Rfam assigns this 103-nucleotide RNA sequence from Triticum turgidum to the family "Small nucleolar RNA Z107/R87". Its family is annotated with nucleolus and RNA processing in the Gene Ontology. The match comes from Rfam's covariance-model search (82 bits). The literature on the family includes a 2001 paper in J Mol Biol by Barneche et al., "Identification of 66 box C/D snoRNAs in Arabidopsis thaliana: extensive gene duplications generated multiple isoforms predicting new ribosomal RNA 2'-O-methylation sites". The base pairs follow the family's consensus structure, which was predicted with RNAfold.
[Rfam]
RNA sequence: GAUGGCAGUGAAGAUUUGCAAAUAUUCAAGAUCAACAGACCAAAUCACAGGUUUUCUCUUAGGAAUCGAUUGUAUGCCGAUUAUCCUACUGGACCGAGCCAUA
Number, nucleotide and partner (000 for none) at each position: 001g000002a102003u101004g100005g099006c098007a000008g000009u000010g000011a000012a000013g000014a000015u000016u000017u000018g000019c000020a000021a000022a000023u000024a000025u000026u000027c000028a000029a000030g000031a000032u000033c000034a000035a000036c000037a000038g000039a000040c000041c000042a000043a000044a000045u000046c000047a000048c000049a000050g000051g000052u000053u000054u000055u000056c000057u000058c000059u000060u000061a000062g000063g000064a000065a000066u000067c000068g000069a000070u000071u000072g000073u000074a000075u000076g000077c000078c000079g000080a000081u000082u000083a000084u000085c000086c000087u000088a000089c000090u000091g000092g000093a000094c000095c000096g000097a000098g006099c005100c004101a003102u002103a000